The family of this 66-nucleotide RNA from Python bivittatus is "Small nucleolar RNA SNORD63". The organism belongs to Python, within Eukaryota.
[Rfam]
RNA sequence: GUGCUAUGAUGCAAUUAUCAACACAUCAUUCUGAAAAGUUGUGUGGAAGAUUUUUGACUGAGCACA
Numbered sequence: 001g002u003g004c005u006a007u008g009a010u011g012c013a014a015u016u017a018u019c020a021a022c023a024c025a026u027c028a029u030u031c032u033g034a035a036a037a038g039u040u041g042u043g044u045g046g047a048a049g050a051u052u053u054u055u056g057a058c059u060g061a062g063c064a065c066a
Stems, first nucleotide, its partner, number of pairs: 001065004
Rfam classes the family as a C/D-box small nucleolar RNA. Rfam describes the family as follows. snoRNA U63 is found in both humans and mice. Rfam 15.1 lists 795 matches to the family in 549 species. Rfam links the family to the GO terms RNA processing and nucleolus.